This 81-nucleotide sequence from Hermetia illucens belongs to the Rfam family "bantam microRNA precursor family". The organism belongs to Hermetia, within Eukaryota. For this family Rfam cites "Functional shifts in insect microRNA evolution" (Marco et al., Genome Biol Evol, 2010).
RNA sequence: CAUCAUUAACGAAACCGGUUUUCGAUUUGAUUUUACUUAUUAACUGAAAAGUGAGAUCAUUUUGAAAGCUGAUUUUGUCCA
Numbered sequence: 001c002a003u004c005a006u007u008a009a010c011g012a013a014a015c016c017g018g019u020u021u022u023c024g025a026u027u028u029g030a031u032u033u034u035a036c037u038u039a040u041u042a043a044c045u046g047a048a049a050a051g052u053g054a055g056a057u058c059a060u061u062u063u064g065a066a067a068g069c070u071g072a073u074u075u076u077g078u079c080c081a
Base pairs, nucleotide, nucleotide: 009078010077011076012075013074014073016071017070018069019068020067021066022065023064024063025062028059029058030057031056032055033054